[Rfam]
RNA sequence: AGUUGUGGUGGCUUUCUUUCUGGCGCAUUUGUUAAGUUUUCAGAUGGGCCUGACUCUGCCACAUGUAUUAUUUAGGAGCUGGCAAAGGCUUGAUGACAGAGAUAUCUCUCUAGCCUUUCCUGCAUCAGCGAUUGGCUCUCACAUGU
Numbered sequence: 001a002g003u004u005g006u007g008g009u010g011g012c013u014u015u016c017u018u019u020c021u022g023g024c025g026c027a028u029u030u031g032u033u034a035a036g037u038u039u040u041c042a043g044a045u046g047g048g049c050c051u052g053a054c055u056c057u058g059c060c061a062c063a064u065g066u067a068u069u070a071u072u073u074a075g076g077a078g079c080u081g082g083c084a085a086a087g088g089c090u091u092g093a094u095g096a097c098a099g100a101g102a103u104a105u106c107u108c109u110c111u112a113g114c115c116u117u118u119c120c121u122g123c124a125u126c127a128g129c130g131a132u133u134g135g136c137u138c139u140c141a142c143a144u145g146u
Stems, first nucleotide, its partner, number of pairs: 005062007022050003026046006075139006081090003107131002110128002

Shown here is a 146-nucleotide RNA sequence from Equus caballus, a member of the family "Small nucleolar RNA SNORA12". Rfam classes the family as an H/ACA-box small nucleolar RNA. Rfam 15.1 lists 571 matches to the family in 378 species. Pairs were carried over by alignment from the consensus structure, which was predicted with RNAalifold. The sequence is in the family's curated seed alignment. For this family Rfam cites "A novel experimental approach for systematic identification of box H/ACA snoRNAs from eukaryotes" (Gu et al., Nucleic Acids Res, 2005). Rfam links the family to the GO terms nucleolus and RNA processing. From the family's description: U108 belongs to the H/ACA family of snoRNAs. The sequence is predicted to guide the pseudouridylation of the U372 residue in the 28S rRNA subunit. However it has not been reported as a pseudouridylation site.